Background
PyrR binding site: a 104-nucleotide sequence from Paraclostridium benzoelyticum. The base pairs follow the family's consensus structure, which is taken from published work.

RNA sequence: ACUUCCUUGAAAGUAGUCCAGAGAGGCUAGUAAGGUUAUAUAUGAAGAUAUGUUUAAUUUGUGUACAUAUAACCUCUAACUGGAUUAGUUAGAGGUUUUUUUAU
Numbered sequence: 001a002c003u004u005c006c007u008u009g010a011a012a013g014u015a016g017u018c019c020a021g022a023g024a025g026g027c028u029a030g031u032a033a034g035g036u037u038a039u040a041u042a043u044g045a046a047g048a049u050a051u052g053u054u055u056a057a058u059u060u061g062u063g064u065a066c067a068u069a070u071a072a073c074c075u076c077u078a079a080c081u082g083g084a085u086u087a088g089u090u091a092g093a094g095g096u097u098u099u100u101u102u103a104u
Stems, first nucleotide, its partner, number of pairs: 005035005014029005039065007046055003069099001071097012

Rfam 15.1 lists 1,498 matches to the family in 930 species.